[Rfam]
RNA sequence: CCCCCCGAGACAUACCGCAGUAUGACCCGUCCGGAGGUUGGCGGUGGGGUAGAGCACUGAUAGGAGGAUCCGGGGGGUGACACCCUCGCCCUCCUGUCAAACUCCGAAUCCACCGCCGCCGUAGAUGGGCGGAGUCAGGGGCAGGGGGUAAGCUCCUGUUCCGAGAGGGAGACAACCCAGACCGGGGUUAAGGCCCCUAAGUGCCGGCUAAGUGUAAACGAUAAAGGAGGUCCCGGGUCGAAGACAGCGGGGAGGUAGGCUUAGAAGCAGCCACCCUUUAAAGAGUGCGUAACAGCUCACCCGCCGAGACUCGGGGCGCCGAAAAUGGACGGGGCUCAAGCCGGCCGCCGAUACCCCGGGGCUCCGAAAGGAGAUCCGGUAGGGGGGCGUGCCGAUGGCGCAGAAGCCUGAGGCGUAAGCUCGGGUGGAGCCGUCGGUAACGAAUAU
Numbered sequence: 001c002c003c004c005c006c007g008a009g010a011c012a013u014a015c016c017g018c019a020g021u022a023u024g025a026c027c028c029g030u031c032c033g034g035a036g037g038u039u040g041g042c043g044g045u046g047g048g049g050u051a052g053a054g055c056a057c058u059g060a061u062a063g064g065a066g067g068a069u070c071c072g073g074g075g076g077g078u079g080a081c082a083c084c085c086u087c088g089c090c091c092u093c094c095u096g097u098c099a100a101a102c103u104c105c106g107a108a109u110c111c112a113c114c115g116c117c118g119c120c121g122u123a124g125a126u127g128g129g130c131g132g133a134g135u136c137a138g139g140g141g142c143a144g145g146g147g148g149u150a151a152g153c154u155c156c157u158g159u160u161c162c163g164a165g166a167g168g169g170a171g172a173c174a175a176c177c178c179a180g181a182c183c184g185g186g187g188u189u190a191a192g193g194c195c196c197c198u199a200a201g202u203g204c205c206g207g208c209u210a211a212g213u214g215u216a217a218a219c220g221a222u223a224a225a226g227g228a229g230g231u232c233c234c235g236g237g238u239c240g241a242a243g244a245c246a247g248c249g250g251g252g253a254g255g256u257a258g259g260c261u262u263a264g265a266a267g268c269a270g271c272c273a274c275c276c277u278u279u280a281a282a283g284a285g286u287g288c289g290u291a292a293c294a295g296c297u298c299a300c301c302c303g304c305c306g307a308g309a310c311u312c313g314g315g316g317c318g319c320c321g322a323a324a325a326u327g328g329a330c331g332g333g334g335c336u337c338a339a340g341c342c343g344g345c346c347g348c349c350g351a352u353a354c355c356c357c358g359g360g361g362c363u364c365c366g367a368a369a370g371g372a373g374a375u376c377c378g379g380u381a382g383g384g385g386g387g388c389g390u391g392c393c394g395a396u397g398g399c400g401c402a403g404a405a406g407c408c409u410g411a412g413g414c415g416u417a418a419g420c421u422c423g424g425g426u427g428g429a430g431c432c433g434u435c436g437g438u439a440a441c442g443a444a445u446a447u
Stems, first nucleotide, its partner, number of pairs: 001387006011024005026134001027132006036120003040117008052105001053103002059098009072087005138162009167178003182359007192349003201346001203345006226320002230317010247304005253277003258272003278282001283298001287296002360377002362373004388442001390439010406426005412421003
Rfam assigns this 447-nucleotide part of an RNA from Archaeoglobus fulgidus to the family "Archaeal large subunit ribosomal RNA".
The family is grouped with related families in Rfam's "LSU clan".
Rfam's curators put it in the seed alignment.